[Rfam]
RNA sequence: ACAACUGGUUUGGGGUGCUUCUACUCCCGAUUCUUUUCGGGCGUACGGGGCUGAGAACACACCCACUGAACCUGCUCUAGUUAGAACUAGCGAAGGGAAACCCAUGCAGGAGCAU
Numbered sequence: 001a002c003a004a005c006u007g008g009u010u011u012g013g014g015g016u017g018c019u020u021c022u023a024c025u026c027c028c029g030a031u032u033c034u035u036u037u038c039g040g041g042c043g044u045a046c047g048g049g050g051c052u053g054a055g056a057a058c059a060c061a062c063c064c065a066c067u068g069a070a071c072c073u074g075c076u077c078u079a080g081u082u083a084g085a086a087c088u089a090g091c092g093a094a095g096g097g098a099a100a101c102c103c104a105u106g107c108a109g110g111a112g113c114a115u
Stems, first nucleotide, its partner, number of pairs: 007102004011065004016059001017051005071096003077090004
Annotation
Shown here is a 115-nucleotide sequence from Rothia nasimurium, a member of the family "TPP riboswitch aptamer (THI element)". The family's consensus secondary structure is taken from published work. About the family: Vitamin B(1) in its active form thiamin pyrophosphate (TPP) is an essential coenzyme that is synthesised by coupling of pyrimidine and thiazole moieties in bacteria. Taxonomically the source falls in Rothia (Bacteria, Bacillati, Actinomycetota, Micrococcaceae). The match comes from Rfam's covariance-model search (57 bits).